[Rfam]
RNA sequence: AUGACCCUUUAAUCUAGUCCAGAGAGGCUAAAAGGAACCGGAAUAUGUUGUAGUGAUACGUCUAUUCAAGUCCCUUUUUUCCUCAUGGAGAAAAGGGAUUUUUUA
Dot-bracket structure: ..(..((((.....(((((......))))).))))..)........(.((((....)))).)......((((((((((((((....)))))))))))))).....

Description:
The family of this 105-nucleotide RNA sequence from Virgibacillus indicus is "PyrR binding site". The family has 41 seed sequences and 1,498 matches in Rfam 15.1. A reference for the family is Bonner et al. (2001), "Molecular recognition of pyr mRNA by the Bacillus subtilis attenuation regulatory protein PyrR", Nucleic Acids Res. By type it is a cis-regulatory element. Taxonomically the source falls in Virgibacillus (Bacteria, Bacillota, Bacilli, Caryophanales).